[Rfam]
RNA sequence: UCGCAAUCUGUGCGUCGGUGGAGCCGAAGAGCAGAUGGUUUUCAACCCACUUCAUUUCGGAAUACCCGAGGAAAAGGUGAGCA
Numbered sequence: 001u002c003g004c005a006a007u008c009u010g011u012g013c014g015u016c017g018g019u020g021g022a023g024c025c026g027a028a029g030a031g032c033a034g035a036u037g038g039u040u041u042u043c044a045a046c047c048c049a050c051u052u053c054a055u056u057u058c059g060g061a062a063u064a065c066c067c068g069a070g071g072a073a074a075a076g077g078u079g080a081g082c083a
Base pairs, nucleotide, nucleotide: 003082004081007035008034009033010032011031016026017025018024019023037047038046039045040044048079049078050077051076055071056070057069058068059067060066
About this RNA:
A member of the RNA family "SucA RNA motif" from Polynucleobacter kasalickyi, 83 nucleotides long. A reference for the family is Weinberg et al. (2007), "Identification of 22 candidate structured RNAs in bacteria using the CMfinder comparative genomics pipeline", Nucleic Acids Res. The organism belongs to Polynucleobacter, within Bacteria. Gene Ontology term of the family: regulation of translation.